[Rfam]
RNA: ctgf/hcs24 CAESAR
RNA sequence: AUGGAGACAUGGCAUAAAGCCAGGGAGUAAGGGACAUGAACUUGUCAGACUAUAACUUGAACUGAGUUACAUCUCAUUUU
Dot-bracket structure: ...((((..((((.....))))....((((....................................)))).)))).....